A member of the RNA family "Small nucleolar RNA SNORA1" from Octodon degus, 132 nucleotides long. The family has 29 seed sequences and 1,282 matches in Rfam 15.1. ACA1 is a member of the H/ACA class of snoRNA that guide the sites of modification of uridines to pseudouridines. Rfam classes the family as an H/ACA-box small nucleolar RNA. The family's consensus secondary structure was predicted with PFOLD. A search with the family's covariance model found it, with a score of 112 bits.

[Rfam]
Nucleotides: 132
Base pairs, nucleotide, nucleotide: 002060003059004058006056007055008054021043022042023041024040025039026038027037073125074124075123076122077121087111088110089109090108091107092106
Number, partner (000 for none) and nucleotide at each position: 001000a002060g003059c004058c005000u006056u007055a008054u009000u010000c011000u012000g013000g014000g015000u016000u017000a018000g019000a020000a021043u022042g023041g024040g025039c026038a027037c028000u029000g030000u031000u032000g033000a034000u035000u036000g037027g038026u039025g040024u041023c042022c043021a044000g045000a046000a047000u048000u049000g050000g051000u052000g053000a054008a055007u056006g057000u058004g059003g060002c061000u062000a063000c064000a065000a066000u067000u068000g069000a070000g071000a072000c073125a074124c075123a076122g077121g078000u079000c080000a081000g082000g083000c084000u085000u086000c087111c088110a089109u090108c091107a092106u093000c094000g095000u096000a097000g098000u099000a100000u101000u102000u103000a104000c105000a106092g107091u108090g109089g110088u111087g112000a113000c114000a115000a116000u117000g118000a119000a120000g121077u122076c123075u124074g125073u126000a127000a128000c129000a130000u131000u132000c